[Rfam]
RNA sequence: CUUUAUUGCAUCCUCGCGACUAAUGACAAUCCUUAUACCUGUCGGGCAUAAAGUCUCUCAUUAGCCGCGCGAACCUCUGCAAAUAAAGAUCACAUACUGCAACAAUACAAUAGAUUGCUAUGGAUUGCUGCGGAUUGCUUGAAAAAAGGGGCCCGGAGGCCCCUUUUC
Number, nucleotide and partner (000 for none) at each position: 001c088002u087003u086004u085005a084006u083007u000008g080009c079010a078011u000012c000013c000014u000015c071016g070017c069018g068019a000020c064021u063022a062023a061024u060025g059026a058027c000028a000029a000030u000031c000032c000033u000034u000035a000036u000037a000038c000039c000040u000041g000042u000043c000044g000045g000046g000047c000048a000049u000050a000051a000052a000053g000054u000055c000056u000057c000058u026059c025060a024061u023062u022063a021064g020065c000066c000067g000068c018069g017070c016071g015072a000073a000074c000075c000076u000077c000078u010079g009080c008081a000082a000083a006084u005085a004086a003087a002088g001089a000090u000091c000092a000093c000094a000095u122096a000097c000098u000099g000100c000101a000102a000103c000104a000105a000106u000107a000108c000109a000110a000111u000112a000113g000114a000115u000116u000117g000118c000119u000120a000121u000122g095123g000124a000125u000126u000127g000128c000129u000130g000131c000132g000133g000134a000135u000136u000137g000138c000139u000140u000141g000142a000143a000144a000145a000146a000147a000148g163149g162150g161151g160152c159153c158154c000155g000156g000157a000158g153159g152160c151161c150162c149163c148164u000165u000166u000167u000168c000
A member of the RNA family "SraG RNA" from Pantoea alhagi, 168 nucleotides long. The family's consensus secondary structure was predicted with PFOLD. Gene Ontology terms of the family: mRNA binding and sRNA-mediated gene silencing. On this family, see Argaman et al., Curr Biol 2001: "Novel small RNA-encoding genes in the intergenic regions of Escherichia coli". It is annotated as a small RNA.